This 218-nucleotide sequence from Steinernema carpocapsae belongs to the Rfam family "Nematode sRNA ceN72-3_ceN74-2". The family has 13 seed sequences and 521 matches in Rfam 15.1. By type it is a small RNA. The source organism's lineage runs through Eukaryota, Ecdysozoa, Nematoda, Rhabditida and Steinernema.

RNA sequence: CGCUUCGGUCCGGAGUCAGCGGGUUAUCAUUUCCCCCUUUCGGAAACGACCCUUCCUUUGGGAAGCGAUCUCAGGCCAUUUGCCGCGACGCCCUCCGCGGAUUUGGAGAUCACGUUCAAACGCUCUAUUGGAUUGAUGGGCUGGAUAGAACGGAAACGUCCUGGAUCCGAGAGAUAAUCUGUCUCUAAACCUUCCCGCUGGCACUACUUGACCGAACC
Numbered sequence: 001c002g003c004u005u006c007g008g009u010c011c012g013g014a015g016u017c018a019g020c021g022g023g024u025u026a027u028c029a030u031u032u033c034c035c036c037c038u039u040u041c042g043g044a045a046a047c048g049a050c051c052c053u054u055c056c057u058u059u060g061g062g063a064a065g066c067g068a069u070c071u072c073a074g075g076c077c078a079u080u081u082g083c084c085g086c087g088a089c090g091c092c093c094u095c096c097g098c099g100g101a102u103u104u105g106g107a108g109a110u111c112a113c114g115u116u117c118a119a120a121c122g123c124u125c126u127a128u129u130g131g132a133u134u135g136a137u138g139g140g141c142u143g144g145a146u147a148g149a150a151c152g153g154a155a156a157c158g159u160c161c162u163g164g165a166u167c168c169g170a171g172a173g174a175u176a177a178u179c180u181g182u183c184u185c186u187a188a189a190c191c192u193u194c195c196c197g198c199u200g201g202c203a204c205u206a207c208u209u210g211a212c213c214g215a216a217c218c
Base pairs, nucleotide, nucleotide: 002218004216006214007213008212009211010210012205013204015202016201017200018199019198020197021196022195023194037048039046040045052065053064054063055062068184